RNA sequence: CCCAACCCCCACGGGCGCCCGGGGCACCGGGCUGAGAUUGCGCUGCCUUGCCGCGCAAGGACCGUAUGAACCUGUCUGGUUAGCACCAGCGAAGGAAGAGAGGCCUACAAGGACA
Numbered sequence: 001c002c003c004a005a006c007c008c009c010c011a012c013g014g015g016c017g018c019c020c021g022g023g024g025c026a027c028c029g030g031g032c033u034g035a036g037a038u039u040g041c042g043c044u045g046c047c048u049u050g051c052c053g054c055g056c057a058a059g060g061a062c063c064g065u066a067u068g069a070a071c072c073u074g075u076c077u078g079g080u081u082a083g084c085a086c087c088a089g090c091g092a093a094g095g096a097a098g099a100g101a102g103g104c105c106u107a108c109a110a111g112g113a114c115a
Stems, first nucleotide, its partner, number of pairs: 006103002009100001011065004016059001017032005039058001040056004071095003076089004